[Rfam]
RNA sequence: AUCGGCAUAUGACGACAAUUAAUCUUAUGCUACACACUGAAUCUUGGUGCUGACUCCAAACUCCGCUUAUUAUCUGAUGCCAUU
Numbered sequence: 001a002u003c004g005g006c007a008u009a010u011g012a013c014g015a016c017a018a019u020u021a022a023u024c025u026u027a028u029g030c031u032a033c034a035c036a037c038u039g040a041a042u043c044u045u046g047g048u049g050c051u052g053a054c055u056c057c058a059a060a061c062u063c064c065g066c067u068u069a070u071u072a073u074c075u076g077a078u079g080c081c082a083u084u
Base pairs, nucleotide, nucleotide: 004081005080006079007078
This 84-nucleotide sequence from Carnegiea gigantea belongs to the Rfam family "Small nucleolar RNA R16". The source organism's lineage runs through Eukaryota, Viridiplantae, Caryophyllales, Cactaceae and Carnegiea. The base pairs follow the family's consensus structure, which was predicted with PFOLD. It is annotated as a C/D-box small nucleolar RNA.